The record is a 37-nucleotide RNA sequence from Sciurus vulgaris, which matches "XIST RNA A repeat" in Rfam. The match comes from Rfam's covariance-model search (59 bits). A reference for the family is Duszczyk et al. (2011), "The Xist RNA A-repeat comprises a novel AUCG tetraloop fold and a platform for multimerization", RNA. Pairs were carried over by alignment from the consensus structure, which was predicted with CMfinder.

[Rfam]
RNA sequence: UAGCCCAUCGGGGCCUCGGAUACCUGCUUUUAUUUUA
Numbered sequence: 001u002a003g004c005c006c007a008u009c010g011g012g013g014c015c016u017c018g019g020a021u022a023c024c025u026g027c028u029u030u031u032a033u034u035u036u037a
Base pairs, nucleotide, nucleotide: 003014004013005012006011017026018025019024